[Rfam]
Description
Shown here is a 99-nucleotide sequence from Theropithecus gelada, a member of the family "mir-4477 microRNA precursor family". A search with the family's covariance model found it, with a score of 74 bits. Pairs were carried over by alignment from the consensus structure, which was predicted with RNAalifold.
RNA sequence: GCCUCCUCCCAUCAAUCACAAAUGUCCUUAAGGAUUUAAAUGCCACAAACGGCAUUUAAGGAUUGCUUUUAAGGACAUUUGUGAUUCACGGGAGGAGGU
Numbered sequence: 001g002c003c004u005c006c007u008c009c010c011a012u013c014a015a016u017c018a019c020a021a022a023u024g025u026c027c028u029u030a031a032g033g034a035u036u037u038a039a040a041u042g043c044c045a046c047a048a049a050c051g052g053c054a055u056u057u058a059a060g061g062a063u064u065g066c067u068u069u070u071a072a073g074g075a076c077a078u079u080u081g082u083g084a085u086u087c088a089c090g091g092g093a094g095g096a097g098g099u
Stems, first nucleotide, its partner, number of pairs: 002098009014086019